Overview: This 131-nucleotide RNA sequence from Nezara viridula belongs to the Rfam family "U4atac minor spliceosomal RNA". Rfam 15.1 lists 1,648 matches to the family in 818 species. Rfam links the family to the GO terms U4atac snRNP, mRNA 5'-splice site recognition and pre-mRNA 5'-splice site binding. Clan: U4 clan. The family's RNA type in Rfam is spliceosomal small nuclear RNA.

RNA sequence: ACCAUCUCUGUCAAGGGGAGCAUAAUGUUCUAUGAUCGUAUAGUGAGGGCAUUGAUGCUGACACCCAUACAAUAUUUAAUCGCACCGCCUCGGCAUAUUAAUGCUGGGUGUUAGGUGCAAUUUUUGGACGG
Numbered sequence: 001a002c003c004a005u006c007u008c009u010g011u012c013a014a015g016g017g018g019a020g021c022a023u024a025a026u027g028u029u030c031u032a033u034g035a036u037c038g039u040a041u042a043g044u045g046a047g048g049g050c051a052u053u054g055a056u057g058c059u060g061a062c063a064c065c066c067a068u069a070c071a072a073u074a075u076u077u078a079a080u081c082g083c084a085c086c087g088c089c090u091c092g093g094c095a096u097a098u099u100a101a102u103g104c105u106g107g108g109u110g111u112u113a114g115g116u117g118c119a120a121u122u123u124u125u126g127g128a129c130g131g
Stems, first nucleotide, its partner, number of pairs: 005019005020058004024053007037043001082118005087112001090107007